[Rfam]
RNA sequence: CCGUGCAGCCGGGGAGAUAGCGGUGCCCUGUACCUGCAAUCCGCUACAGCAGGGGUGAUGUUCUGCCUAGGGUGACUUACUGUAAGGCAGCCCUUUAUAAGUGAUGUUGACGUUUGGGUCUUACGCAACAGGAAUUUGUGAACCGUGUCAGGUCAGGAAUGAAGCAGCACUAAGCAAAAACUCCUGUGUGCCGUGAGGGUGCCUGGACCGAGUUAACUGUAAAGGUAACGCUUAUGGUAUGCAUUCGAAGCAGAGCGCACGG
Dot-bracket structure: ((((((.(((((((.(.(...).).))))...(((((...........)))))))).....(((((.(.(((((...(((((((((......((((((..(((((......((((((((((((((((.(((((.(((((.....((((....(((....)))....))))...)))))...)))))))...))))))...))))))))...))).)).))))))......)))))))))..))))).).)))))..))))))
Numbered sequence: 001c002c003g004u005g006c007a008g009c010c011g012g013g014g015a016g017a018u019a020g021c022g023g024u025g026c027c028c029u030g031u032a033c034c035u036g037c038a039a040u041c042c043g044c045u046a047c048a049g050c051a052g053g054g055g056u057g058a059u060g061u062u063c064u065g066c067c068u069a070g071g072g073u074g075a076c077u078u079a080c081u082g083u084a085a086g087g088c089a090g091c092c093c094u095u096u097a098u099a100a101g102u103g104a105u106g107u108u109g110a111c112g113u114u115u116g117g118g119u120c121u122u123a124c125g126c127a128a129c130a131g132g133a134a135u136u137u138g139u140g141a142a143c144c145g146u147g148u149c150a151g152g153u154c155a156g157g158a159a160u161g162a163a164g165c166a167g168c169a170c171u172a173a174g175c176a177a178a179a180a181c182u183c184c185u186g187u188g189u190g191c192c193g194u195g196a197g198g199g200u201g202c203c204u205g206g207a208c209c210g211a212g213u214u215a216a217c218u219g220u221a222a223a224g225g226u227a228a229c230g231c232u233u234a235u236g237g238u239a240u241g242c243a244u245u246c247g248a249a250g251c252a253g254a255g256c257g258c259a260c261g262g
Stems, first nucleotide, its partner, number of pairs: 001262006008056003011029004016024001018022001033053005062254005068248001070246005078239009093224006101217002103214003112208008120197006126188002129186005135178005145170004153162003
Rfam assigns this 262-nucleotide sequence from Variimorphobacter saccharofermentans to the family "Bacterial large signal recognition particle RNA". Clan: SRP clan. Rfam links the family to the GO terms signal recognition particle, plasma membrane targeting and SRP-dependent cotranslational protein targeting to membrane, signal sequence recognition. A reference for the family is Rosenblad et al. (2003), "SRPDB: Signal Recognition Particle Database", Nucleic Acids Res. The family's consensus secondary structure is taken from published work. The match comes from Rfam's covariance-model search (200 bits).